The record is an 86-nucleotide RNA from Lactuca saligna, which matches "Small nucleolar RNA SNORD34" in Rfam. The family has 14 seed sequences and 1,319 matches in Rfam 15.1. On this family, see Galardi et al., Mol Cell Biol 2002: "Purified box C/D snoRNPs are able to reproduce site-specific 2'-O-methylation of target RNA in vitro". Rfam describes the family as follows. snoRNA U34 is found in intron 5 of the ribosomal protein L13a gene in humans. Taxonomically the source falls in Lactuca (Eukaryota, Magnoliopsida, Gunneridae, Cichorioideae). Gene Ontology terms of the family: RNA processing and nucleolus. It scores 46 bits against the family's covariance model. Pairs were carried over by alignment from the consensus structure, which was predicted with PFOLD.
[Rfam]
RNA sequence: GGAUGCCUGUGAUGAAUAGAAAAUUUGCCUACAUUGUCUGAUUUGUUUAUACAAUGAAGAGAAAAUUAUAGAUUUCUGAGGCGUUU
Numbered sequence: 001g002g003a004u005g006c007c008u009g010u011g012a013u014g015a016a017u018a019g020a021a022a023a024u025u026u027g028c029c030u031a032c033a034u035u036g037u038c039u040g041a042u043u044u045g046u047u048u049a050u051a052c053a054a055u056g057a058a059g060a061g062a063a064a065a066u067u068a069u070a071g072a073u074u075u076c077u078g079a080g081g082c083g084u085u086u
Base pairs, nucleotide, nucleotide: 001086002085004083005082006081007080
Dot-bracket structure: ((.((((........................................................................)))).))